A member of the RNA family "Small nucleolar RNA Z278" from Hibiscus trionum, 116 nucleotides long.
Rfam classes the family as a C/D-box small nucleolar RNA.
From the family's description: snoZ278 is a C/D box small nucleolar RNA. Its methylation guide targets have not been reported.
The family has 7 seed sequences and 1,130 matches in Rfam 15.1.

[Rfam]
RNA sequence: GUCUGUGAUGAGCUAUCCUAUUGUUUGAGAUGUAAAUUUCCUCAAGAUCCUGUUUACAGGGUGAACCUACUUGGGGUGUCUAUAUUGUUCUUGAAAUUAUCGGAUCUAAUUGAGAC
Numbered sequence: 001g002u003c004u005g006u007g008a009u010g011a012g013c014u015a016u017c018c019u020a021u022u023g024u025u026u027g028a029g030a031u032g033u034a035a036a037u038u039u040c041c042u043c044a045a046g047a048u049c050c051u052g053u054u055u056a057c058a059g060g061g062u063g064a065a066c067c068u069a070c071u072u073g074g075g076g077u078g079u080c081u082a083u084a085u086u087g088u089u090c091u092u093g094a095a096a097u098u099a100u101c102g103g104a105u106c107u108a109a110u111u112g113a114g115a116c
Stems, first nucleotide, its partner, number of pairs: 001116003048061005